Shown here is a 297-nucleotide sequence from Dimorphilus gyrociliatus, a member of the family "Nuclear RNase P". Pairs were carried over by alignment from the consensus structure, which is taken from published work. The family's RNA type in Rfam is ribozyme. Taxonomically the source falls in Dimorphilus (Eukaryota, Opisthokonta, Metazoa, Eumetazoa). The match comes from Rfam's covariance-model search (159 bits). Rfam 15.1 lists 3,848 matches to the family in 1,862 species.
[Rfam]
RNA sequence: GGCGUAAAAGCUCGCAUCAGAGGUCACAGACAGGUACUUGUUACCUAAUAAAGGCCUGUGGGAAGGUCUGAGAAGGCCGAUUUCUAGGCUCUAGAAGGGUCCCAACUGUAAAGUUGGGUGAGGGAACCAGAAAAUGACCGGCUGGACGCGAAUAUGACGCGAGACGUCUAAUCCCCCUGAAAAGGGAUAGACGGAUGUCCGCGUUGCAGUUAGGUUGGAAGCUCUCACGGCCGGCUAUGUGAGUCCGAUUUGCGAGGUGAACUUGGUUCAUAACUCGAUUCAGACUACUCUUACGCC
Numbered sequence: 001g002g003c004g005u006a007a008a009a010g011c012u013c014g015c016a017u018c019a020g021a022g023g024u025c026a027c028a029g030a031c032a033g034g035u036a037c038u039u040g041u042u043a044c045c046u047a048a049u050a051a052a053g054g055c056c057u058g059u060g061g062g063a064a065g066g067u068c069u070g071a072g073a074a075g076g077c078c079g080a081u082u083u084c085u086a087g088g089c090u091c092u093a094g095a096a097g098g099g100u101c102c103c104a105a106c107u108g109u110a111a112a113g114u115u116g117g118g119u120g121a122g123g124g125a126a127c128c129a130g131a132a133a134a135u136g137a138c139c140g141g142c143u144g145g146a147c148g149c150g151a152a153u154a155u156g157a158c159g160c161g162a163g164a165c166g167u168c169u170a171a172u173c174c175c176c177c178u179g180a181a182a183a184g185g186g187a188u189a190g191a192c193g194g195a196u197g198u199c200c201g202c203g204u205u206g207c208a209g210u211u212a213g214g215u216u217g218g219a220a221g222c223u224c225u226c227a228c229g230g231c232c233g234g235c236u237a238u239g240u241g242a243g244u245c246c247g248a249u250u251u252g253c254g255a256g257g258u259g260a261a262c263u264u265g266g267u268u269c270a271u272a273a274c275u276c277g278a279u280u281c282a283g284a285c286u287a288c289u290c291u292u293a294c295g296c297c
Stems, first nucleotide, its partner, number of pairs: 001297004007292002011256006019059001021057003032046005068283005075232004087101005102117006118228007138214002257271005